[Rfam]
Y RNA: a 118-nucleotide RNA sequence.
Rfam describes the family as follows. Y RNAs are components of the Ro ribonucleoprotein particle (Ro RNP), in association with Ro60 and La proteins. The Y RNAs and Ro60 and La proteins are well conserved, but the function of the Ro RNP is not known.
For this family Rfam cites "5'-YRNA fragments derived by processing of transcripts from specific YRNA genes and pseudogenes are abundant in human serum and plasma" (Dhahbi et al., Physiol Genomics, 2013).
Rfam's curators put it in the seed alignment.
The base pairs follow the family's consensus structure, which is taken from published work.
RNA sequence: GGCUGGUCCAAAGGUAGUUAGUUGAGUUAUCUCAGUUGGUUGUUCAUAGGCAGUAACAGAUCAAACUCCUUAUUCUUCUCUGUCCCCUCUUCUCAAUACUGCACUUGACUAGUCUAAA
Numbered sequence: 001g002g003c004u005g006g007u008c009c010a011a012a013g014g015u016a017g018u019u020a021g022u023u024g025a026g027u028u029a030u031c032u033c034a035g036u037u038g039g040u041u042g043u044u045c046a047u048a049g050g051c052a053g054u055a056a057c058a059g060a061u062c063a064a065a066c067u068c069c070u071u072a073u074u075c076u077u078c079u080c081u082g083u084c085c086c087c088u089c090u091u092c093u094c095a096a097u098a099c100u101g102c103a104c105u106u107g108a109c110u111a112g113u114c115u116a117a118a
Stems, first nucleotide, its partner, number of pairs: 001114008010106002014102002016097001018095001020093002049079002052076002